[Rfam]
RNA sequence: UCCACCGUGAGGUGGAAUCUGAAGGAAGUCGGAGGCAAAGUUCUGGUUUGAGGUACACGAACUACAUUAGAGGCUUGACCCUAUGGAUGAGGUUGCAUAACAAGCCAAAAUCCUGAAUUAUCCGAAAUAGGGAAAGUAUAUGUAGCAGAUACAUGGAAUGAAAGUUUACGCU
Number, nucleotide and partner (000 for none) at each position: 001u016002c015003c014004a013005c012006c011007g000008u000009g000010a000011g006012g005013u004014g003015g002016a001017a000018u000019c000020u000021g000022a000023a000024g000025g000026a000027a000028g172029u000030c170031g169032g000033a000034g000035g165036c164037a000038a000039a000040g159041u158042u157043c156044u155045g154046g150047u149048u148049u147050g146051a000052g000053g000054u000055a000056c000057a000058c000059g000060a000061a000062c145063u144064a143065c142066a141067u140068u000069a000070g000071a000072g000073g137074c136075u135076u000077g000078a000079c132080c131081c130082u129083a128084u127085g113086g112087a111088u110089g000090a000091g106092g105093u104094u103095g000096c000097a000098u000099a000100a000101c000102a000103a094104g093105c092106c091107a000108a000109a000110a088111u087112c086113c085114u000115g000116a000117a000118u000119u000120a000121u000122c000123c000124g000125a000126a000127a084128u083129a082130g081131g080132g079133a000134a000135a075136g074137u073138a000139u000140a067141u066142g065143u064144a063145g062146c050147a049148g048149a047150u046151a000152c000153a000154u045155g044156g043157a042158a041159u040160g000161a000162a000163a000164g036165u035166u000167u000168a000169c031170g030171c000172u028
The family of this 172-nucleotide sequence from Desulfonispora thiosulfatigenes is "Group II catalytic intron D1-D4-3". A search with the family's covariance model found it, with a score of 143 bits. The base pairs follow the family's consensus structure.